[Rfam]
RNA sequence: CUUGGCCGGCGGCACCGGCUGUGACUCUUUGCGACUGGGAGAAGGUGGAGAUUGGAGAAUGGGCGCGGGUGUUCCGGGCUGGCGGAUUAGGGUUUUGAGCACCGCUCGAAGGGCGCUGUUUGCAGGGGUGCUGCUGCGUAAGCGGCUUUGGCAUCACGGCGAUUAAAGAGAUUGGGCAACGGACGAGGCUGGCAACAGAGCAGUCAAAACCGACCCCAGUGUUCGGUCGAGGGAUCUGCUCCUCGUGCCGCCAGCACAGAUGCAUCACUCCGCACAGACUCCUUU
Dot-bracket structure: (((((((((.....))))))....(((...........))))))..((((.(((..(....((.(((......(.(.((((((((.(.........(((((((.(((((.((((((((.((((.(.(((((((((((....)))))...)))))).).))))((...))(.((((......(((....(((....)))....)))....)))).).))))))))..)))))))...)))))...)..)))))))).).).))).))......).))).))))...
The record is a 285-nucleotide RNA from Andalucia godoyi, which matches "Metazoan signal recognition particle RNA" in Rfam. Rfam classes the family as a non-coding RNA gene. A search with the family's covariance model found it, with a score of 90 bits. The family's consensus secondary structure is taken from published work. Rfam links the family to the GO terms SRP-dependent cotranslational protein targeting to membrane, signal sequence recognition and signal recognition particle, endoplasmic reticulum targeting.